[Rfam]
The record is a 255-nucleotide RNA sequence from Mesobacillus campisalis, which matches "BsrG" in Rfam. The family has 6 seed sequences and 614 matches in Rfam 15.1. About the family: bsrE, bsrG and bsrH pair through intermolecular interactions with antisense sRNAs. They form type I toxin/antitoxin system that includes an mRNA encoding for a short, toxic peptide (bsrE, bsrG and bsrH) and an antitoxin that is comprised of an antisense RNA. bsrG encodes a 39-amino-acid toxin, and the 180 nucleotide antisense sRNA called SR4 acts as the antitoxin (they overlap by 123 nucleotides). SR4 interaction with the 3'UTR of bsrG RNA promotes bsrG degradation and inhibits its translation. The match comes from Rfam's covariance-model search (66 bits). The family's consensus secondary structure was predicted with WAR.

RNA sequence: GCAAUAGUAUAGGGAACUCAGGAGGUGGGUCAGCGAUCCCCGGUGAAAGGGGGUGGUGCUGUGACCGUCUACCAAGCGCUAACGCUAAUGAUUGCUUUUGCCAGUUUAGUUGUUACGAUUAUCGCUUUAACACAAAAAAAGUAACCCACCCUUGAGCCUGCCAGCAUUUAGAGUGGAUUACGUCCUGAUUUAUUUGCUGAUGCCCCUUGAAGGAACAUGCUAUUGCAUGACCGUUUGGUGUUGCGAGCACCGGCG
Numbered sequence: 001g002c003a004a005u006a007g008u009a010u011a012g013g014g015a016a017c018u019c020a021g022g023a024g025g026u027g028g029g030u031c032a033g034c035g036a037u038c039c040c041c042g043g044u045g046a047a048a049g050g051g052g053g054u055g056g057u058g059c060u061g062u063g064a065c066c067g068u069c070u071a072c073c074a075a076g077c078g079c080u081a082a083c084g085c086u087a088a089u090g091a092u093u094g095c096u097u098u099u100g101c102c103a104g105u106u107u108a109g110u111u112g113u114u115a116c117g118a119u120u121a122u123c124g125c126u127u128u129a130a131c132a133c134a135a136a137a138a139a140a141g142u143a144a145c146c147c148a149c150c151c152u153u154g155a156g157c158c159u160g161c162c163a164g165c166a167u168u169u170a171g172a173g174u175g176g177a178u179u180a181c182g183u184c185c186u187g188a189u190u191u192a193u194u195u196g197c198u199g200a201u202g203c204c205c206c207u208u209g210a211a212g213g214a215a216c217a218u219g220c221u222a223u224u225g226c227a228u229g230a231c232c233g234u235u236u237g238g239u240g241u242u243g244c245g246a247g248c249a250c251c252g253g254c255g
Base pairs, nucleotide, nucleotide: 001226002225003224004223006221007220008219010217011201012198013197015195017156018155019154020153021152022151024149027146028145030143034056036054038053039052040051041050063123064122067119068118069117077090078089099115100114102112202216205213232255233254234253236252237251238250239249240248241247242246